[Rfam]
RNA: mir-9261 microRNA precursor family
Organism: Cnephaeus nilssonii
RNA sequence: AACAAUUUGUCCCACGUCCCACGGUGUUUUUAAAAAAGUUCCUAAUCUUUCCAAAAAUAGGGACUUUUUAAAACGCCGUGGGACGCGGGACAAAUUGUUAA
Numbered sequence: 001a002a003c004a005a006u007u008u009g010u011c012c013c014a015c016g017u018c019c020c021a022c023g024g025u026g027u028u029u030u031u032a033a034a035a036a037a038g039u040u041c042c043u044a045a046u047c048u049u050u051c052c053a054a055a056a057a058u059a060g061g062g063a064c065u066u067u068u069u070a071a072a073a074c075g076c077c078g079u080g081g082g083a084c085g086c087g088g089g090a091c092a093a094a095u096u097g098u099u100a101a
Stems, first nucleotide, its partner, number of pairs: 001099013015085015031070006
Dot-bracket structure: (((((((((((((.(((((((((((((((.((((((............................))))))))))))))))))))).)))))))))))))..